[Rfam]
Small nucleolar RNA snoR97: a 103-nucleotide sequence from Lottia gigantea.

RNA sequence: CAUAUUUUAUGUUUUAGUAGUCUGUAAACUUCACAAUUUCAAGCUAUUACUAUCUUCGUCUUAUAUGAGGUAUAAGAGAGAAGUAUGUAAUAGCUUGACAUUG
Numbered sequence: 001c002a003u004a005u006u007u008u009a010u011g012u013u014u015u016a017g018u019a020g021u022c023u024g025u026a027a028a029c030u031u032c033a034c035a036a037u038u039u040c041a042a043g044c045u046a047u048u049a050c051u052a053u054c055u056u057c058g059u060c061u062u063a064u065a066u067g068a069g070g071u072a073u074a075a076g077a078g079a080g081a082a083g084u085a086u087g088u089a090a091u092a093g094c095u096u097g098a099c100a101u102u103g
Base pairs, nucleotide, nucleotide: 040097041096042095043094044093045092046091052084054083055082056081057080059077060076061075062074
Pairs were carried over by alignment from the consensus structure, which was predicted with WAR. A search with the family's covariance model found it, with a score of 42 bits. Its family is annotated with RNA processing and nucleolus in the Gene Ontology. The organism belongs to Lottia, within Eukaryota.